[Rfam]
RNA: mir-365 microRNA precursor family
RNA sequence: AGGGACUUUUGGGGGCAGAUGUGUUUCCAUUACACUAUCAUAAUGCCCCUAAAAAUCCUUAUUGCUCUUGCA
Numbered sequence: 001a002g003g004g005a006c007u008u009u010u011g012g013g014g015g016c017a018g019a020u021g022u023g024u025u026u027c028c029a030u031u032a033c034a035c036u037a038u039c040a041u042a043a044u045g046c047c048c049c050u051a052a053a054a055a056u057c058c059u060u061a062u063u064g065c066u067c068u069u070g071c072a
Base pairs, nucleotide, nucleotide: 001060002059003058004057005056007054008053009052011050012049013048014047015046016045017044020042021041022040023039